[Rfam]
RNA sequence: GAAUUCUCGAUCACCGUAUCACGUGUGGCCAAAGUCAAAUCCAUUAUUGAACAUUGGCACUCCGCUGAUUUGGUGAUCGACUUUUC
Numbered sequence: 001g002a003a004u005u006c007u008c009g010a011u012c013a014c015c016g017u018a019u020c021a022c023g024u025g026u027g028g029c030c031a032a033a034g035u036c037a038a039a040u041c042c043a044u045u046a047u048u049g050a051a052c053a054u055u056g057g058c059a060c061u062c063c064g065c066u067g068a069u070u071u072g073g074u075g076a077u078c079g080a081c082u083u084u085u086c
Base pairs, nucleotide, nucleotide: 001086002085003084007080008079009078010077011076012075013074014073015072016071018069019068020067025060026059028058029057030056031055032054034052035051
This 86-nucleotide RNA from Caenorhabditis briggsae belongs to the Rfam family "mir-791 microRNA precursor family". Taxonomically the source falls in Caenorhabditis (Eukaryota, Metazoa, Nematoda, Rhabditomorpha). The family has 2 seed sequences and 6 matches in Rfam 15.1. The sequence is in the family's curated seed alignment. Gene Ontology terms of the family: miRNA-mediated post-transcriptional gene silencing and RISC complex.